[Rfam]
RNA sequence: GACGGGCCACCGCCUAAUCGUUCCAGUCGUGAACGAACCGGGGACCCGAGCAACCGGGGUUAAGCCGCAGCAGCACCGCGGCCGGGCGCGCUUCCCGCCCGCACCCGUCAGCUAACCCGGUCGGCGGCCGAGGGAAGAAAG
Numbered sequence: 001g002a003c004g005g006g007c008c009a010c011c012g013c014c015u016a017a018u019c020g021u022u023c024c025a026g027u028c029g030u031g032a033a034c035g036a037a038c039c040g041g042g043g044a045c046c047c048g049a050g051c052a053a054c055c056g057g058g059g060u061u062a063a064g065c066c067g068c069a070g071c072a073g074c075a076c077c078g079c080g081g082c083c084g085g086g087c088g089c090g091c092u093u094c095c096c097g098c099c100c101g102c103a104c105c106c107g108u109c110a111g112c113u114a115a116c117c118c119g120g121u122c123g124g125c126g127g128c129c130g131a132g133g134g135a136a137g138a139a140a141g
Base pairs, nucleotide, nucleotide: 011126012125013124014123018036019035020034021033022032023031037121038120039119040118041117042116047056048055057106058105059104065081066080067079068078084100085099086098087097